Rfam assigns this 86-nucleotide sequence from Diceros bicornis to the family "Small nucleolar RNA SNORD105". Clan: SNORD105 clan. The pairing is the family consensus, mapped onto this sequence. U105 belongs to the C/D family of snoRNAs. It is encoded in an intron of the Suppressor of SWI4 1 homolog (Ssf-1) (Peter Pan homolog) gene. and is predicted to guide 2'O-ribose methylation of residue U799 of the small 18S rRNA subunit. The family's RNA type in Rfam is C/D-box small nucleolar RNA. The match comes from Rfam's covariance-model search (97 bits). Taxonomically the source falls in Diceros bicornis (Eukaryota, Metazoa, Vertebrata, Teleostomi). Gene Ontology terms of the family: nucleolus and RNA processing. Rfam 15.1 lists 146 matches to the family in 134 species. On this family, see Vitali et al., Nucleic Acids Res 2003: "Identification of 13 novel human modification guide RNAs".
RNA sequence: GCCCCAGCUCUCAUGAUGAACCCAUGUGCCUCUGACCCCUCGUGAUUCUGGCUUCAAAGUAAACGCUCUGAAGAGAUGGGUAGAGG
Number, nucleotide and partner (000 for none) at each position: 001g000002c086003c085004c000005c083006a000007g081008c080009u079010c078011u000012c000013a000014u000015g000016a000017u000018g000019a000020a000021c000022c000023c000024a000025u000026g000027u000028g000029c000030c000031u000032c000033u000034g000035a000036c000037c000038c000039c000040u000041c000042g000043u000044g000045a000046u000047u000048c000049u000050g000051g000052c000053u000054u000055c000056a000057a000058a000059g000060u000061a000062a000063a000064c000065g000066c000067u000068c000069u000070g000071a000072a000073g000074a000075g000076a000077u000078g010079g009080g008081u007082a000083g005084a000085g003086g002